[Rfam]
RNA sequence: GUCCAAGCCCGGGCCCCUCUGGCAGUUCACGCGAACUGCGAUGUCGGAUUGGACAC
Number, nucleotide and partner (000 for none) at each position: 001g000002u000003c000004c000005a000006a050007g049008c000009c047010c046011g045012g044013g000014c000015c000016c000017c000018u000019c000020u000021g000022g039023c038024a037025g036026u035027u034028c033029a000030c000031g000032c000033g028034a027035a026036c025037u024038g023039c022040g000041a000042u000043g000044u012045c011046g010047g009048a000049u007050u006051g000052g000053a000054c000055a000056c000

Shown here is a 56-nucleotide RNA from Bradyrhizobium sp. LMTR 3, a member of the family "terC RNA".
It scores 48 bits against the family's covariance model.
The family's consensus secondary structure is taken from published work.